The record is a 60-nucleotide sequence from Cynara cardunculus, which matches "Plastid-psbA-4 3UTR RNA" in Rfam.

RNA sequence: AACCAAAAGGAGCAAUAGCUUCCUUCUUGUUUUAUCAAGAGGACGUUAUUGCUCCUUUUU
Dot-bracket structure: .....((((((((((((...(..((((((......)))))).)...))))))))))))..
About this RNA
For this family Rfam cites "Retrograde signaling in plants: A critical review focusing on the GUN pathway and beyond" (Richter et al., Plant Commun, 2023). The family is grouped with related families in Rfam's "Plastid-psbA 3UTR RNA clan". Plastid psbA-4 is a non-coding RNA (ncRNA) present in plastids. It was identified in inverted repeat sequences in the 3 prime untranslate region (3UTR) of photosystem II quinone-binding protein (psbA). The family's consensus secondary structure was predicted with LocARNA.